[Rfam]
RNA sequence: CGCACAUCAGAUUUCCUGGUGUAAUGAAUUUUCAAGUGCUUCUUGCAUCAGCAAGUUUAAUCCCGACCCGUCAGGGUCGGGAUUU
Numbered sequence: 001c002g003c004a005c006a007u008c009a010g011a012u013u014u015c016c017u018g019g020u021g022u023a024a025u026g027a028a029u030u031u032u033c034a035a036g037u038g039c040u041u042c043u044u045g046c047a048u049c050a051g052c053a054a055g056u057u058u059a060a061u062c063c064c065g066a067c068c069c070g071u072c073a074g075g076g077u078c079g080g081g082a083u084u085u
Stems, first nucleotide, its partner, number of pairs: 004022007026058003029054002031051002034048001036046003060083007068075002

DsrA RNA: an 85-nucleotide RNA sequence from Citrobacter rodentium. On this family, see Sledjeski and Gottesman, Proc Natl Acad Sci USA 1995: "A small RNA acts as an antisilencer of the H-NS-silenced rcsA gene of Escherichia coli". The base pairs follow the family's consensus structure, which is taken from published work. Rfam links the family to the GO terms mRNA transcription and positive regulation of translation. The source organism's lineage runs through Bacteria, Pseudomonadota, Enterobacterales, Citrobacter and Citrobacter rodentium. The family's RNA type in Rfam is small RNA. Rfam's curators write: DsrA RNA regulates both transcription, by overcoming transcriptional silencing by the nucleoid-associated H-NS protein, and translation, by promoting efficient translation of the stress sigma factor, RpoS. These two activities of DsrA can be separated by mutation: the first of three stem-loops of the 85 nucleotide RNA is necessary for RpoS translation but not for anti-H-NS action, while the second stem-loop is essential for antisilencing and less critical for RpoS translation.